[Rfam]
RNA sequence: CGGCUGUAGCCAAAUCAAAAAGGAAGUAAAACUGGUCGACUUGCCAAUGAUCCCAUGGCAAUCCGCUUACCGAACUUCCUAUAACC
Numbered sequence: 001c002g003g004c005u006g007u008a009g010c011c012a013a014a015u016c017a018a019a020a021a022g023g024a025a026g027u028a029a030a031a032c033u034g035g036u037c038g039a040c041u042u043g044c045c046a047a048u049g050a051u052c053c054c055a056u057g058g059c060a061a062u063c064c065g066c067u068u069a070c071c072g073a074a075c076u077u078c079c080u081a082u083a084a085c086c
Base pairs, nucleotide, nucleotide: 021080022079023078024077025076026075027074034067035066036065038063039062041060043059044058045057
RNA: Small nucleolar RNA snoR109
Organism: Zizania palustris